[Rfam]
RNA sequence: GGAGCCCUGCUUGUCCGAAGCCUGACGUUAUGCGUCAGAGAUUCAUGUAGGACAAGUGGGGCUUC
Numbered sequence: 001g002g003a004g005c006c007c008u009g010c011u012u013g014u015c016c017g018a019a020g021c022c023u024g025a026c027g028u029u030a031u032g033c034g035u036c037a038g039a040g041a042u043u044c045a046u047g048u049a050g051g052a053c054a055a056g057u058g059g060g061g062c063u064u065c
Stems, first nucleotide, its partner, number of pairs: 001065016022038007

A member of the RNA family "DUF3800-VIII RNA", 65 nucleotides long.
The base pairs follow the family's consensus structure, which is taken from published work.
Bacteroidetes, Cyanobacteria, Firmicutes, Planctomycetes (1 example), Proteobacteria, Tenericutes (1 example).